RNA sequence: ACGACCUUACUUGAACAGGAUCUGUUCUAUAGUAAUCGUACCUCUGUAUCCUUGAUUUCAAAGGAGACAGGUGACCAAGUCUGUUGGAUGAAUCUAGACUGCAGGACCAGAGCGUGAUUAACAGUCCUGCAUGGUCAGUGCACCAUUCAGAGCCAUAGAGGAUCGUUCUCAGCUGGGGGGUUCUCCUUGGCUGGGGUGGUCUUGCAGUUGUCUGACAGACC
Number, nucleotide and partner (000 for none) at each position: 001a039002c038003g036004a000005c000006c032007u031008u000009a000010c000011u000012u000013g027014a026015a025016c024017a023018g022019g000020a000021u000022c018023u017024g016025u015026u014027c013028u000029a000030u000031a007032g006033u000034a000035a000036u003037c000038g002039u001040a000041c000042c000043u000044c070045u069046g068047u067048a000049u065050c064051c063052u062053u061054g000055a000056u000057u000058u000059c000060a000061a053062a052063g051064g050065a049066g000067a047068c046069a045070g044071g000072u000073g000074a000075c000076c000077a000078a000079g220080u219081c218082u217083g216084u000085u000086g000087g000088a000089u000090g000091a000092a000093u000094c000095u000096a000097g000098a208099c207100u206101g205102c204103a203104g202105g201106a200107c199108c198109a197110g000111a167112g166113c165114g164115u000116g000117a000118u000119u000120a000121a156122c000123a000124g153125u152126c000127c150128u149129g148130c000131a146132u145133g144134g143135u142136c000137a000138g000139u000140g000141c000142a135143c134144c133145a132146u131147u000148c129149a128150g127151a000152g125153c124154c000155a000156u121157a000158g000159a000160g000161g000162a000163u000164c114165g113166u112167u111168c000169u194170c193171a192172g191173c190174u189175g188176g187177g186178g185179g000180g000181u000182u000183c000184u000185c178186c177187u176188u175189g174190g173191c172192u171193g170194g169195g000196g000197u109198g108199g107200u106201c105202u104203u103204g102205c101206a100207g099208u098209u000210g000211u000212c000213u000214g000215a000216c083217a082218g081219a080220c079221c000
Overview: Rfam assigns this 221-nucleotide sequence from Apium graveolens to the family "Plant small nucleolar RNA U3". The literature on the family includes a 1999 paper in Mol Cell Biol by Speckmann et al., "Nuclear retention elements of U3 small nucleolar RNA". Rfam links the family to the GO terms nucleolus and RNA processing. Small nucleolar RNAs (snoRNAs) are involved in the processing and modification of rRNA in the nucleolus. There are two main classes of snoRNAs: the box C/D class, and the box H/ACA class. U3 snoRNA is a member of the box C/D class. Indeed, the box C/D element is a subset of the six short sequence elements found in all U3 snoRNAs, namely boxes A, A', B, C, C', and D. The U3 snoRNA secondary structure is characterised by a small 5' domain (with boxes A and A'), and a larger 3' domain (with boxes B, C, C', and D), the two domains being linked by a single-stranded hinge. By type it is a C/D-box small nucleolar RNA. Its Rfam clan is "U3 clan". Rfam 15.1 lists 3,759 matches to the family in 258 species.